[Rfam]
RNA sequence: UAUUUUGGAAAGAAUCGGACCUCGAGACCCGAAUCAGGAAAAAAAUGGACAGAAGAAGAAGGGUGAAAGGAUUAACGAAAGUUAGCCAUCUGUGAGUUAGAAAGGGUACUAGCCACACAGUGAUAAACCCUCACUGACCCCUUCAACUUCG
Numbered sequence: 001u002a003u004u005u006u007g008g009a010a011a012g013a014a015u016c017g018g019a020c021c022u023c024g025a026g027a028c029c030c031g032a033a034u035c036a037g038g039a040a041a042a043a044a045a046u047g048g049a050c051a052g053a054a055g056a057a058g059a060a061g062g063g064u065g066a067a068a069g070g071a072u073u074a075a076c077g078a079a080a081g082u083u084a085g086c087c088a089u090c091u092g093u094g095a096g097u098u099a100g101a102a103a104g105g106g107u108a109c110u111a112g113c114c115a116c117a118c119a120g121u122g123a124u125a126a127a128c129c130c131u132c133a134c135u136g137a138c139c140c141c142u143u144c145a146a147c148u149u150c151g
Stems, first nucleotide, its partner, number of pairs: 001047006014034001015032004052150004058144006072085005091117004096113005118136005
Dot-bracket structure: ((((((.......(((((..........)))).).......))))))....((((..((((((........(((((....))))).....((((.(((((........)))))))))(((((.........)))))..))))))..)))).
IMES-5 RNA: a 151-nucleotide RNA sequence. The family's RNA type in Rfam is small RNA. It is one of the family's seed sequences.